Shown here is a 118-nucleotide sequence from Oceanobacillus limi, a member of the family "SAM riboswitch aptamer (S box leader)". Rfam 15.1 lists 9,625 matches to the family in 4,158 species.
Nucleotides: 118
Stems, first nucleotide, its partner, number of pairs: 001118008013042001015041003021032003026090004043082004048078002050074001052072002086110001091107006
Number, partner (000 for none) and nucleotide at each position: 001118c002117u003116c004115u005114u006113a007112u008111c009000a010000a011000g012000a013042g014000u015041g016040a017039c018000g019000g020000a021032g022031g023030g024000a025000a026090u027089a028088g029087g030023c031022c032021c033000g034000a035000u036000g037000a038000a039017g040016u041015c042013c043082g044081g045080c046079a047000a048078c049077c050074u051000u052072a053071a054000c055000g056000c057000a058000a059000g060000a061000a062000u063000a064000u065000c066000u067000u068000g069000c070000a071053u072052u073000u074050a075000a076000a077049g078048g079046u080045g081044c082043u083000a084000a085000a086110u087029c088028c089027u090026a091107c092106a093105g094104a095103u096102c097000c098000a099000u100000u101000u102096g103095a104094u105093c106092u107091g108000g109000a110086a111008g112007a113006u114005a115004a116003g117002a118001g